RNA sequence: GGACUGCGUCGCGACUGGCGAGCUCCCACGCUGAACAGCAGGGGGCGGGUGGGUCACCACCAGGGAGCGGCAACGCUGUACGACGACGGGUCGAACGCCUGGGCCCUGUGU
Numbered sequence: 001g002g003a004c005u006g007c008g009u010c011g012c013g014a015c016u017g018g019c020g021a022g023c024u025c026c027c028a029c030g031c032u033g034a035a036c037a038g039c040a041g042g043g044g045g046c047g048g049g050u051g052g053g054u055c056a057c058c059a060c061c062a063g064g065g066a067g068c069g070g071c072a073a074c075g076c077u078g079u080a081c082g083a084c085g086a087c088g089g090g091u092c093g094a095a096c097g098c099c100u101g102g103g104c105c106c107u108g109u110g111u
Base pairs, nucleotide, nucleotide: 004075008071009070010069011068012067015064016063017099018098019097020096049060050059051058052057088106089105090104091103092102

About this RNA:
The family of this 111-nucleotide sequence from Xylanimonas cellulosilytica is "ZMP/ZTP riboswitch aptamer (pfl RNA motif)". Pairs were carried over by alignment from the consensus structure, which is taken from published work. The literature on the family includes a 2015 paper in Mol Cell by Kim et al., "An ancient riboswitch class in bacteria regulates purine biosynthesis and one-carbon metabolism". The source organism's lineage runs through Bacteria, Bacillati, Actinomycetota, Promicromonosporaceae and Xylanimonas cellulosilytica.